[Rfam]
RNA sequence: ACAUGUGAGGGCGAUCUGGUUGCGACAUCUGUCACCCCAUUGAUCGCCAGGGUUGAUUCGGCUGAUCUGGCUGGCUAGGCGGGUGUCCCCUUCCUCCCUCACCGCUCCAUGUGCGUCCCUCCCGAAGCUGCGCGCUCGGUCGAAGAGGACGACCAUCCCUGAUAGAGGAGGACCGGUCUUCGGUCAAGGGUAUACGAAUAGCUGCUGUAUUUUAAAAGAUAUCUUUCCUGAGACCUCCAGGCCAUACCCAUCUCUGUGGUGUCUGUAAGUCAGU
Numbered sequence: 001a002c003a004u005g006u007g008a009g010g011g012c013g014a015u016c017u018g019g020u021u022g023c024g025a026c027a028u029c030u031g032u033c034a035c036c037c038c039a040u041u042g043a044u045c046g047c048c049a050g051g052g053u054u055g056a057u058u059c060g061g062c063u064g065a066u067c068u069g070g071c072u073g074g075c076u077a078g079g080c081g082g083g084u085g086u087c088c089c090c091u092u093c094c095u096c097c098c099u100c101a102c103c104g105c106u107c108c109a110u111g112u113g114c115g116u117c118c119c120u121c122c123c124g125a126a127g128c129u130g131c132g133c134g135c136u137c138g139g140u141c142g143a144a145g146a147g148g149a150c151g152a153c154c155a156u157c158c159c160u161g162a163u164a165g166a167g168g169a170g171g172a173c174c175g176g177u178c179u180u181c182g183g184u185c186a187a188g189g190g191u192a193u194a195c196g197a198a199u200a201g202c203u204g205c206u207g208u209a210u211u212u213u214a215a216a217a218g219a220u221a222u223c224u225u226u227c228c229u230g231a232g233a234c235c236u237c238c239a240g241g242c243c244a245u246a247c248c249c250a251u252c253u254c255u256g257u258g259g260u261g262u263c264u265g266u267a268a269g270u271c272a273g274u
Stems, first nucleotide, its partner, number of pairs: 003106001005102007013093002018090002024087010035074002037070003042067004046062003116171002118168004122139004127135002140162003147158003201223001203221001207220002210217001239274001243269001245267003249261004
This 274-nucleotide RNA from Ovis aries belongs to the Rfam family "7SK RNA". The literature on the family includes a 2002 paper in Curr Biol by Blencowe, "Transcription: surprising role for an elusive small nuclear RNA". The source organism's lineage runs through Eukaryota, Craniata, Teleostomi, Laurasiatheria and Ovis. Its Rfam clan is "7SK clan". The family's RNA type in Rfam is non-coding RNA gene. About the family: 7SK was discovered as an abundant small nuclear RNA in the mid-70s but a possible function has only recently been suggested. Pairs were carried over by alignment from the consensus structure, which is taken from published work. It scores 242 bits against the family's covariance model.